[Rfam]
RNA sequence: AGGUACUCCCGAGUCUCGCCACGGAUGGCGGUGAUAGGGAUAACGGCUGGUUAGCACAGCCAGCGAUUCAUCUGUUCGACCGUAGUGAGGGACGUUUCGCCCCACGAGAACAGGUCGUGAACCGCGAACCUUAAUAUCCCAACUCAGCGGUGCGGUGCCGUGGGAUUCCCGCGUCUUCAGGCGCGGGA
Number, nucleotide and partner (000 for none) at each position: 001a000002g000003g044004u043005a000006c000007u040008c039009c038010c037011g000012a000013g035014u034015c033016u031017c030018g029019c028020c027021a026022c000023g000024g000025a000026u021027g020028g019029c018030g017031g016032u000033g015034a014035u013036a000037g010038g009039g008040a007041u000042a000043a004044c003045g061046g060047c059048u058049g057050g000051u000052u000053a000054g000055c000056a000057c049058a048059g047060c046061c045062a000063g000064c124065g123066a000067u121068u120069c119070a000071u114072c113073u112074g111075u110076u109077c108078g000079a000080c000081c000082g000083u000084a000085g000086u000087g000088a000089g103090g102091g101092a000093c099094g000095u000096u000097u000098c000099g093100c000101c091102c090103c089104a000105c000106g000107a000108g077109a076110a075111c074112a073113g072114g071115u000116c000117g000118u000119g069120a068121a067122c000123c065124g064125c000126g000127a000128a000129c000130c000131u000132u000133a000134a000135u000136a000137u165138c164139c163140c162141a000142a000143c000144u000145c000146a000147g000148c000149g000150g000151u000152g000153c000154g000155g000156u000157g000158c000159c000160g000161u000162g140163g139164g138165a137166u000167u188168c187169c186170c185171g184172c183173g182174u181175c180176u000177u000178c000179a000180g175181g174182c173183g172184c171185g170186g169187g168188a167
This 188-nucleotide RNA sequence from Natrarchaeobius halalkaliphilus belongs to the Rfam family "Sense overlapping transcript RNA 0042 (sot)". The family has 2 seed sequences and 196 matches in Rfam 15.1. Rfam describes the family as follows. It is associated with IS1341-type transposase (tnpB) genes, at the 3'-end in H. salinarum NRC-1. The tetraloop structural motif may be functional. It scores 112 bits against the family's covariance model.